The family of this 158-nucleotide RNA sequence is "rpsB sRNA". Rfam's curators put it in the seed alignment.
[Rfam]
RNA sequence: CACACACGGGGGCGGCAGCUUUCCUGCCAUCCGGUGUCUUUAUGUACCUGUCAUGCCGCAUUUAUUGCGGCAUCUUUAGCCAGACCCCGCAACCAGUGCGGGGUGACAAUAUGAAAAGACUCUCCUCCGUGGCGGAUUAACCGGUAAAAGGAUUGUAG
Numbered sequence: 001c002a003c004a005c006a007c008g009g010g011g012g013c014g015g016c017a018g019c020u021u022u023c024c025u026g027c028c029a030u031c032c033g034g035u036g037u038c039u040u041u042a043u044g045u046a047c048c049u050g051u052c053a054u055g056c057c058g059c060a061u062u063u064a065u066u067g068c069g070g071c072a073u074c075u076u077u078a079g080c081c082a083g084a085c086c087c088c089g090c091a092a093c094c095a096g097u098g099c100g101g102g103g104u105g106a107c108a109a110u111a112u113g114a115a116a117a118g119a120c121u122c123u124c125c126u127c128c129g130u131g132g133c134g135g136a137u138u139a140a141c142c143g144g145u146a147a148a149a150g151g152a153u154u155g156u157a158g
Stems, first nucleotide, its partner, number of pairs: 001134001003132001005131006014028005036120006